This 80-nucleotide RNA from Crocuta crocuta belongs to the Rfam family "mir-499 microRNA precursor family". It scores 92 bits against the family's covariance model. Rfam 15.1 lists 710 matches to the family in 635 species. Its family is annotated with RISC complex and miRNA-mediated post-transcriptional gene silencing in the Gene Ontology.
RNA sequence: GGGCGGGCGGCCGUUAAGACUUGCAGUGAUGUUUAACUCCUCUCUCUAGUGAACAUCACAGCAAGUCUGUGCUGCUUCCC
Numbered sequence: 001g002g003g004c005g006g007g008c009g010g011c012c013g014u015u016a017a018g019a020c021u022u023g024c025a026g027u028g029a030u031g032u033u034u035a036a037c038u039c040c041u042c043u044c045u046c047u048a049g050u051g052a053a054c055a056u057c058a059c060a061g062c063a064a065g066u067c068u069g070u071g072c073u074g075c076u077u078c079c080c
Stems, first nucleotide, its partner, number of pairs: 017068007026059010